A member of the RNA family "Fluoride riboswitch aptamer (crcB RNA motif)" from Enterococcus asini, 66 nucleotides long.
Taxonomically the source falls in Enterococcus asini (Bacteria, Bacilli, Lactobacillales, Enterococcaceae).
Pairs were carried over by alignment from the consensus structure, which is taken from published work.
A search with the family's covariance model found it, with a score of 45 bits.
Rfam links the family to the GO terms positive regulation of gene expression and response to fluoride.
[Rfam]
Nucleotides: 066
Stems, first nucleotide, its partner, number of pairs: 010025004016057006033047004
Number, partner (000 for none) and nucleotide at each position: 001000u002000u003000g004000u005000g006000u007000a008000a009000g010025a011024g012023g013022g014000a015000u016057g017056g018055u019054g020053c021052u022013c023012c024011c025010u026000c027000c028000u029000a030000a031000c032000u033047g034046c035045u036044g037000a038000g039000u040000g041000a042000u043000u044036c045035a046034g047033c048000u049000g050000a051000u052021g053020g054019c055018g056017c057016c058000u059000g060000u061000u062000a063000u064000a065000a066000g